[Rfam]
RNA sequence: AGGUGCAAUACAAGCUCUCAGGGCCUUUACCAAGACCCAGAGUCCAGUUUUUGGAGAACCCUCCGGCUAAGGGGGGUUG
Number, nucleotide and partner (000 for none) at each position: 001a000002g000003g000004u000005g000006c000007a000008a000009u000010a000011c000012a000013a000014g000015c000016u000017c000018u000019c000020a000021g038022g037023g036024c000025c034026u033027u032028u000029a000030c000031c000032a027033a026034g025035a000036c023037c022038c021039a000040g000041a000042g000043u000044c000045c000046a000047g000048u000049u000050u000051u000052u000053g000054g000055a000056g000057a078058a077059c076060c075061c074062u073063c072064c071065g000066g000067c000068u000069a000070a000071g064072g063073g062074g061075g060076g059077u058078u057079g000

This 79-nucleotide sequence from Pristionchus pacificus belongs to the Rfam family "SmY spliceosomal RNA". The family's RNA type in Rfam is spliceosomal small nuclear RNA. The organism belongs to Pristionchus, within Eukaryota.